[Rfam]
The record is a 138-nucleotide sequence from Salix brachista, which matches "Small nucleolar RNA snoR136" in Rfam. Rfam classes the family as an H/ACA-box small nucleolar RNA. Pairs were carried over by alignment from the consensus structure, which was predicted with mfold.
RNA sequence: UUCACAUCAGCUCUAUAUAAAAGCUAAAACUAAGUUUUGAUUAGUUGAUGCUUAUGUUAGUGAAGCGCAAAUCAUAUGUUCCCCUCGCUAUCCAGAGCUGCGUUUUGUGUUGUAUUUGGACGUCGGGGAACUACAUUC
Numbered sequence: 001u002u003c004a005c006a007u008c009a010g011c012u013c014u015a016u017a018u019a020a021a022a023g024c025u026a027a028a029a030c031u032a033a034g035u036u037u038u039g040a041u042u043a044g045u046u047g048a049u050g051c052u053u054a055u056g057u058u059a060g061u062g063a064a065g066c067g068c069a070a071a072u073c074a075u076a077u078g079u080u081c082c083c084c085u086c087g088c089u090a091u092c093c094a095g096a097g098c099u100g101c102g103u104u105u106u107g108u109g110u111u112g113u114a115u116u117u118g119g120a121c122g123u124c125g126g127g128g129a130a131c132u133a134c135a136u137u138c
Stems, first nucleotide, its partner, number of pairs: 001070002003067001005065001008062002011060002016056002019053002030050001034049003078131007086122002091120005100110003